[Rfam]
The family of this 58-nucleotide sequence from Lentibacillus halodurans is "Ribosomal protein L13 leader". Rfam's curators write: This family is a putative r-protein leader autoregulatory structure found in B. subtilis and other low-GC Gram-positive bacteria. It is located in the 5' untranslated regions of mRNAs encoding the L13-S9 (rplM-rpsI) ribosomal protein operon. Pairs were carried over by alignment from the consensus structure, which was predicted with CMfinder.
RNA sequence: GGUAUUUUUAUUUGAACCACGAUUAGCCCCGGAAACUAAUUGUGAUGAAAUAUAAACA
Numbered sequence: 001g002g003u004a005u006u007u008u009u010a011u012u013u014g015a016a017c018c019a020c021g022a023u024u025a026g027c028c029c030c031g032g033a034a035a036c037u038a039a040u041u042g043u044g045a046u047g048a049a050a051u052a053u054a055a056a057c058a
Stems, first nucleotide, its partner, number of pairs: 006058001007056005018044009
Dot-bracket structure: .....((((((......(((((((((.........))))))))).......))))).)
The match comes from Rfam's covariance-model search (48 bits). The literature on the family includes a 1994 paper in Prog Nucleic Acid Res Mol Biol by Zengel and Lindahl, "Diverse mechanisms for regulating ribosomal protein synthesis in Escherichia coli".